[Rfam]
RNA: Small nucleolar RNA Z163/Z177 family
Organism: Oryza rufipogon
RNA sequence: UGGCCAGUGAUGAAACGUGAGUUGUACAGAAACCCUGGUGAGUUAAAUGAAGUGAAAUCGACACACAUUGCGUCUCUGAGGCCA
Numbered sequence: 001u002g003g004c005c006a007g008u009g010a011u012g013a014a015a016c017g018u019g020a021g022u023u024g025u026a027c028a029g030a031a032a033c034c035c036u037g038g039u040g041a042g043u044u045a046a047a048u049g050a051a052g053u054g055a056a057a058u059c060g061a062c063a064c065a066c067a068u069u070g071c072g073u074c075u076c077u078g079a080g081g082c083c084a
Base pairs, nucleotide, nucleotide: 001084002083003082004081005080